Rfam assigns this 400-nucleotide RNA from Pseudomonas graminis to the family "Pseudomonas sRNA CrcZ". Its family is annotated with carbon catabolite repression of transcription in the Gene Ontology. The family's consensus secondary structure was predicted with WAR. The organism belongs to Pseudomonas, within Bacteria.

RNA sequence: AUAACAAGAACAAAAUGUGAAAACCCAAUAAAAAUAAGAUGAAUCGGCUCUGACAUAACAAGAACAACGGCACAGAGACGCAGCCAACAGAUUUUUUUGGAGUAGAAACGCUUUACCGAGGCCCCGGCCUCGCAGCCCGACCGAGAAUAAUAAAACUACCCUCAGGUAGCGGCCAGAACGGGUUGGAUCACCUCUCGCAGAAGAGGAAUCAAAGCAGGUCAGCGCUCAAAAAAAUACGUUUGCUCUUGUAUCCCGUAUGGGGAUCACCGAAGACGCUGUAGAGGGACCGGUUGCCAAUAACAACAACAGACCGCCCUACAACAAUAAGAAAGAGCACGUGCAACGAUUUAAAGGGGAGCCUCGGCUCCCCUUUAUGCUGCCUGAGAUUUAGCGUUCAGUU
Numbered sequence: 001a002u003a004a005c006a007a008g009a010a011c012a013a014a015a016u017g018u019g020a021a022a023a024c025c026c027a028a029u030a031a032a033a034a035u036a037a038g039a040u041g042a043a044u045c046g047g048c049u050c051u052g053a054c055a056u057a058a059c060a061a062g063a064a065c066a067a068c069g070g071c072a073c074a075g076a077g078a079c080g081c082a083g084c085c086a087a088c089a090g091a092u093u094u095u096u097u098u099g100g101a102g103u104a105g106a107a108a109c110g111c112u113u114u115a116c117c118g119a120g121g122c123c124c125c126g127g128c129c130u131c132g133c134a135g136c137c138c139g140a141c142c143g144a145g146a147a148u149a150a151u152a153a154a155a156c157u158a159c160c161c162u163c164a165g166g167u168a169g170c171g172g173c174c175a176g177a178a179c180g181g182g183u184u185g186g187a188u189c190a191c192c193u194c195u196c197g198c199a200g201a202a203g204a205g206g207a208a209u210c211a212a213a214g215c216a217g218g219u220c221a222g223c224g225c226u227c228a229a230a231a232a233a234a235u236a237c238g239u240u241u242g243c244u245c246u247u248g249u250a251u252c253c254c255g256u257a258u259g260g261g262g263a264u265c266a267c268c269g270a271a272g273a274c275g276c277u278g279u280a281g282a283g284g285g286a287c288c289g290g291u292u293g294c295c296a297a298u299a300a301c302a303a304c305a306a307c308a309g310a311c312c313g314c315c316c317u318a319c320a321a322c323a324a325u326a327a328g329a330a331a332g333a334g335c336a337c338g339u340g341c342a343a344c345g346a347u348u349u350a351a352a353g354g355g356g357a358g359c360c361u362c363g364g365c366u367c368c369c370c371u372u373u374a375u376g377c378u379g380c381c382u383g384a385g386a387u388u389u390a391g392c393g394u395u396c397a398g399u400u
Base pairs, nucleotide, nucleotide: 045080046079048077049076050075051074095231096230097229098228099227109224110223111222133185134184135183136182137181138180139179156169157168158167159166160165250264251263252262253261283382284381285380287379288313289312290311291310334377335376336375351372352371353370354369355368356367357366358365359364